Rfam assigns this 96-nucleotide RNA from Rummeliibacillus sp. TYF005 to the family "Glycine riboswitch aptamer". Rfam links the family to the GO term glycine biosynthetic process. NCBI's taxonomy places the organism under Bacteria, Bacillota, Caryophanales, Caryophanaceae, Rummeliibacillus.
Nucleotides: 096
Base pairs, nucleotide, nucleotide: 006091007090008089009088010087011086012085013084020034021033022032023031036076037075038074039072040071043070044069045068049063050062051061052060
Number, partner (000 for none) and nucleotide at each position: 001000a002000u003000g004000a005000u006091u007090g008089u009088a010087c011086g012085g013084g014000g015000a016000g017000a018000g019000a020034a021033u022032g023031c024000a025000u026000u027000g028000a029000a030000u031023g032022c033021a034020u035000c036076g037075c038074c039072g040071a041000a042000g043070g044069a045068g046000c047000a048000a049063g050062u051061a052060g053000u054000a055000a056000a057000a058000u059000a060052c061051u062050a063049u064000g065000a066000a067000u068045c069044u070043c071040u072039c073000a074038g075037g076036c077000a078000a079000a080000a081000a082000g083000a084013c085012u086011c087010g088009u089008a090007c091006g092000g093000g094000a095000c096000g